[Rfam]
RNA: Makes More Granules Regulator RNA (mmgR)
RNA sequence: UUCCACCGCCCUCCGUGGGCGUUUCCUCCCUGAACUUGGGCCGUGGCAAUCGCCAUGGCCCCUUUUUUUUGCCCCU
Numbered sequence: 001u002u003c004c005a006c007c008g009c010c011c012u013c014c015g016u017g018g019g020c021g022u023u024u025c026c027u028c029c030c031u032g033a034a035c036u037u038g039g040g041c042c043g044u045g046g047c048a049a050u051c052g053c054c055a056u057g058g059c060c061c062c063u064u065u066u067u068u069u070u071g072c073c074c075c076u
Stems, first nucleotide, its partner, number of pairs: 008020004038061009